This 169-nucleotide RNA from Alkaliphilus oremlandii belongs to the Rfam family "Group II catalytic intron D1-D4-3". It scores 60 bits against the family's covariance model. Rfam's curators write: Group II introns are found in rRNA, tRNA and mRNA of organelles in fungi, plants and protists, and also in mRNA in bacteria. A reference for the family is Bonen and Vogel (2001), "The ins and outs of group II introns", Trends Genet.
[Rfam]
RNA sequence: UUUUCGGCGACGAGAGGGUCUGAAGGAAACCGAUGGCGGUUGCUGGAACGGAGCGAAAGUAAACCAGUGUUGGCAUGUGUAGCGGAUAACCUUGCAAAAAGUAGGAACGUCCUAAUAUUAGCUUAGCUACAUGUGUUUGGAUGGUCGUUUUAGUAACAGGCGGAGCAAC
Numbered sequence: 001u002u003u004u005c006g007g008c009g010a011c012g013a014g015a016g017g018g019u020c021u022g023a024a025g026g027a028a029a030c031c032g033a034u035g036g037c038g039g040u041u042g043c044u045g046g047a048a049c050g051g052a053g054c055g056a057a058a059g060u061a062a063a064c065c066a067g068u069g070u071u072g073g074c075a076u077g078u079g080u081a082g083c084g085g086a087u088a089a090c091c092u093u094g095c096a097a098a099a100a101g102u103a104g105g106a107a108c109g110u111c112c113u114a115a116u117a118u119u120a121g122c123u124u125a126g127c128u129a130c131a132u133g134u135g136u137u138u139g140g141a142u143g144g145u146c147g148u149u150u151u152a153g154u155a156a157c158a159g160g161c162g163g164a165g166c167a168a169c
Base pairs, nucleotide, nucleotide: 001016002015003014004013005012006011032166036161037160041155042154043153044152045151046150047149048148049147050146051145064144065143066142068140073136074135075134077132078131079130080129081128082127083126084112085111086110087109090105091104092103